[Rfam]
RNA sequence: CCCAUAAAUAAUAAAAGGUCCAUUUAGGUCCCUUAACUUUAUUUAAAUUAUCAGUUUGGUUCUGUUAAUUUAAUUCAAAAAAGCGUUAAGUUUAGGGACUAAACUAAUACUAAUUAAAUAAAAUAAGGGACAAAACUAAUACUAUUAAAAUAAGUUAAGAGACCAAAAUUUAACGUUCUUUUGAAUUAAAUUGACAUAAAGGAUCAAACUGAUGCUUUAAAUAAAGUUAAGGGACCUAAACAUAAUUUUUAUUACUUAUGGGA
Numbered sequence: 001c002c003c004a005u006a007a008a009u010a011a012u013a014a015a016a017g018g019u020c021c022a023u024u025u026a027g028g029u030c031c032c033u034u035a036a037c038u039u040u041a042u043u044u045a046a047a048u049u050a051u052c053a054g055u056u057u058g059g060u061u062c063u064g065u066u067a068a069u070u071u072a073a074u075u076c077a078a079a080a081a082a083g084c085g086u087u088a089a090g091u092u093u094a095g096g097g098a099c100u101a102a103a104c105u106a107a108u109a110c111u112a113a114u115u116a117a118a119u120a121a122a123a124u125a126a127g128g129g130a131c132a133a134a135a136c137u138a139a140u141a142c143u144a145u146u147a148a149a150a151u152a153a154g155u156u157a158a159g160a161g162a163c164c165a166a167a168a169u170u171u172a173a174c175g176u177u178c179u180u181u182u183g184a185a186u187u188a189a190a191u192u193g194a195c196a197u198a199a200a201g202g203a204u205c206a207a208a209c210u211g212a213u214g215c216u217u218u219a220a221a222u223a224a225a226g227u228u229a230a231g232g233g234a235c236c237u238a239a240a241c242a243u244a245a246u247u248u249u250u251a252u253u254a255c256u257u258a259u260g261g262g263a
Base pairs, nucleotide, nucleotide: 002261003260004259005258006257007256023240024239025238027236028235029234031232032231033230034229035228036227037226038225039224040223041222042221043220045218046217047216
Shown here is a 263-nucleotide RNA from Medicago truncatula, a member of the family "MIR2655 microRNA precursor family". Its family is annotated with RISC complex and miRNA-mediated post-transcriptional gene silencing in the Gene Ontology. The base pairs follow the family's consensus structure, which was predicted with RNAalifold. The organism belongs to Medicago, within Eukaryota.